[Rfam]
RNA: Makes More Granules Regulator RNA (mmgR)
Organism: Sphingomonas chungangi
RNA sequence: CAAACUCGCCUUUCAGGCAUCCUCUCCUAAAACUUCAGGGCCACCUCCGGGUGGUCUUUUUUUUGCUUGGU
Numbered sequence: 001c002a003a004a005c006u007c008g009c010c011u012u013u014c015a016g017g018c019a020u021c022c023u024c025u026c027c028u029a030a031a032a033c034u035u036c037a038g039g040g041c042c043a044c045c046u047c048c049g050g051g052u053g054g055u056c057u058u059u060u061u062u063u064u065g066c067u068u069g070g071u
Stems, first nucleotide, its partner, number of pairs: 008018004039056007